[Rfam]
RNA sequence: AAAGGAGCAAUAGUAUCCUCUUGAUAGAACAAGAAAAUAAUUAUUUCUCCUUUUUUU
Numbered sequence: 001a002a003a004g005g006a007g008c009a010a011u012a013g014u015a016u017c018c019u020c021u022u023g024a025u026a027g028a029a030c031a032a033g034a035a036a037a038u039a040a041u042u043a044u045u046u047c048u049c050c051u052u053u054u055u056u057u
Stems, first nucleotide, its partner, number of pairs: 001053007009045006019034005

A member of the RNA family "Plastid-psbA-3 3UTR RNA" from Nicotiana attenuata, 57 nucleotides long.
Clan: Plastid-psbA 3UTR RNA clan.
It is annotated as a cis-regulatory element.
Rfam's curators write: Plastid psbA-3 is a non-coding RNA (ncRNA) present in plastids. It was identified in inverted repeat sequences in the 3 prime untranslate region (3UTR) of photosystem II quinone-binding protein (psbA).
Pairs were carried over by alignment from the consensus structure, which was predicted with LocARNA.
The match comes from Rfam's covariance-model search (57 bits).